Shown here is a 29-nucleotide RNA from Otus sunia, a member of the family "L31-Firmicutes ribosomal protein leader". The family's consensus secondary structure is taken from published work. A search with the family's covariance model found it, with a score of 34 bits. Clan: Ribosomal Protein L31 Leader clan. NCBI's taxonomy places the organism under Eukaryota, Sarcopterygii, Tetrapoda, Archelosauria, Otus. On this family, see Eckert and Weinberg, BMC Microbiol 2020: "Discovery of 20 novel ribosomal leader candidates in bacteria and archaea".
RNA sequence: CUCUGAAAUGAAUUUCAGGGCAGAAGGAG
Numbered sequence: 001c002u003c004u005g006a007a008a009u010g011a012a013u014u015u016c017a018g019g020g021c022a023g024a025a026g027g028a029g
Stems, first nucleotide, its partner, number of pairs: 001020008